[Rfam]
Description
The family of this 58-nucleotide RNA is "msiK RNA". The sequence is in the family's curated seed alignment. Rfam classes the family as a cis-regulatory element.
RNA sequence: UGGUCGCAAUACUUCCAAAGGAUCGUCGGGCACGUACCUGCCCGGAAGGAGAAAAAAU
Dot-bracket structure: .........(.((((...........((((((......)))))))))).)........
Numbered sequence: 001u002g003g004u005c006g007c008a009a010u011a012c013u014u015c016c017a018a019a020g021g022a023u024c025g026u027c028g029g030g031c032a033c034g035u036a037c038c039u040g041c042c043c044g045g046a047a048g049g050a051g052a053a054a055a056a057a058u
Stems, first nucleotide, its partner, number of pairs: 010050001012048004027044006